[Rfam]
RNA sequence: ACACGUUCCAAGGGGCGCCGGUAGACCGGCUGAGAUCGUUGUUCGCCAACGAGCACCCUCCGAACCUGAUCCGGCUCGUACCGGCGAAGGGAUGGACGCUGUUUUCCCA
Numbered sequence: 001a002c003a004c005g006u007u008c009c010a011a012g013g014g015g016c017g018c019c020g021g022u023a024g025a026c027c028g029g030c031u032g033a034g035a036u037c038g039u040u041g042u043u044c045g046c047c048a049a050c051g052a053g054c055a056c057c058c059u060c061c062g063a064a065c066c067u068g069a070u071c072c073g074g075c076u077c078g079u080a081c082c083g084g085c086g087a088a089g090g091g092a093u094g095g096a097c098g099c100u101g102u103u104u105u106c107c108c109a
Stems, first nucleotide, its partner, number of pairs: 007096004011059004017030005037051005065090003071084004
The family of this 109-nucleotide RNA sequence from Hyphomicrobium nitrativorans is "TPP riboswitch aptamer (THI element)". The family's consensus secondary structure is taken from published work. About the family: Vitamin B(1) in its active form thiamin pyrophosphate (TPP) is an essential coenzyme that is synthesised by coupling of pyrimidine and thiazole moieties in bacteria. Taxonomically the source falls in Hyphomicrobium nitrativorans (Bacteria, Pseudomonadati, Hyphomicrobiales, Hyphomicrobiaceae).